This 386-nucleotide RNA from Geobacter sp. DSM 9736 belongs to the Rfam family "Bacterial RNase P class A". The base pairs follow the family's consensus structure, which is taken from published work. Taxonomically the source falls in Geobacter (Bacteria, Thermodesulfobacteriota, Geobacterales, Geobacteraceae).
[Rfam]
RNA sequence: GAAGCAGACCGGGUGACCGCUGCCCGUAAGGGGAGAGGAAAGUCCGGGCUCCGAAGGGCAUGGUGCUGGAUAACGUCCAGCGGGGGUGACCCCAGGGAAAGUGCCACAGAGAGAAGUCCGCCUGCAAUGGAUCGUCACGCGCGAUCCGGAAACAGGUAAGGGUGAAAGGGUGAGGUAAGAGCUCACCGGGUCCGGCGGUGACGCCGGAUGCCAGGUAAACCCCACCAGGAGCAAGGCCGAAUAGGGAGGCGUCAAGGACGGCCCGUCCGUGCUUCCGGGUUGGCUGCUUGAGGCCGUCGGCAACGGCGGUCCUAGAUGAAUGGUCGCCGCCCUCUGUCGGGUAACCGGCGGAGGGAACAGAACCCGGCUUAUGGUCUGCUUCGGCC
Dot-bracket structure: ((((((((((((((((((.((.(((....))).))....[[[.[[[[[((((...[[[[.((((((((((.....)))))(((((....)))).)((...(((((............(((((((...(....................)...)))))..)).......((((((.......)))))).(((((((((....)))))))).)..)))..)))))))))))))...((((......((((((.....((((.]]]]))))..)))))).....))))......((((((((....))))))))..........)))))))..................................]]]]]]]].)))))))))))....